This 357-nucleotide RNA from Microvirga mediterraneensis belongs to the Rfam family "Alphaproteobacteria transfer-messenger RNA". Rfam classes the family as a non-coding RNA gene.
RNA sequence: GCCCUUCCAAAAUCCGUCCGCGCCACCUAUAUUGGCCAUGUCGGUCGCAAGAUCGACUAUGGCGAUAAACGGCUAUCGGAAUAAACCCAUCGGACCCGGGGGCGGUACCCGGCGCCUCCACCAAAACCCAAGCUACGCUUGGGUUUUGGCGGGGGCGAAAUAGGAUCGACGAGGGCGUAAAGGGUGGACUUUCGCUCGGCAUGGUUCCGCCGUUAUCGGGCCGAAUCUAUAGUUGCCAACGACAACUAUGCUCCGGUUGCAGUGGCUGCGUAAGCGGUCCCUAAAGCCGAAUCAAAGCCCUUGCGGGUAGCACCGUAAGGCGGGGUCCGGAGGCACCUGGCAACAGAAGCCUCCACU
Numbered sequence: 001g002c003c004c005u006u007c008c009a010a011a012a013u014c015c016g017u018c019c020g021c022g023c024c025a026c027c028u029a030u031a032u033u034g035g036c037c038a039u040g041u042c043g044g045u046c047g048c049a050a051g052a053u054c055g056a057c058u059a060u061g062g063c064g065a066u067a068a069a070c071g072g073c074u075a076u077c078g079g080a081a082u083a084a085a086c087c088c089a090u091c092g093g094a095c096c097c098g099g100g101g102g103c104g105g106u107a108c109c110c111g112g113c114g115c116c117u118c119c120a121c122c123a124a125a126a127c128c129c130a131a132g133c134u135a136c137g138c139u140u141g142g143g144u145u146u147u148g149g150c151g152g153g154g155g156c157g158a159a160a161u162a163g164g165a166u167c168g169a170c171g172a173g174g175g176c177g178u179a180a181a182g183g184g185u186g187g188a189c190u191u192u193c194g195c196u197c198g199g200c201a202u203g204g205u206u207c208c209g210c211c212g213u214u215a216u217c218g219g220g221c222c223g224a225a226u227c228u229a230u231a232g233u234u235g236c237c238a239a240c241g242a243c244a245a246c247u248a249u250g251c252u253c254c255g256g257u258u259g260c261a262g263u264g265g266c267u268g269c270g271u272a273a274g275c276g277g278u279c280c281c282u283a284a285a286g287c288c289g290a291a292u293c294a295a296a297g298c299c300c301u302u303g304c305g306g307g308u309a310g311c312a313c314c315g316u317a318a319g320g321c322g323g324g325g326u327c328c329g330g331a332g333g334c335a336c337c338u339g340g341c342a343a344c345a346g347a348a349g350c351c352u353c354c355a356c357u
Base pairs, nucleotide, nucleotide: 040057041056042055043054044053045052046051061196062195063194064193065192071189073187074186075185076184077183086175087174088173090172091171092170096112097111098110099109100108113157114156115155116154117153118152119151197212198211199210200209202223203222204221206220207219208218323338324337325336326335329354330353331352332351333350334349
About this RNA
Bacterial tmRNA, also known as 10Sa RNA or SsrA, is named for its dual tRNA and mRNA-like properties. Its role is to liberate the mRNA from a stalled ribosome. To accomplish this part of the tmRNA is used as a reading frame that ends in a translation stop signal. Taxonomically the source falls in Microvirga (Bacteria, Pseudomonadota, Alphaproteobacteria, Methylobacteriaceae). Rfam links the family to the GO term RNA catabolic process. A search with the family's covariance model found it, with a score of 318 bits.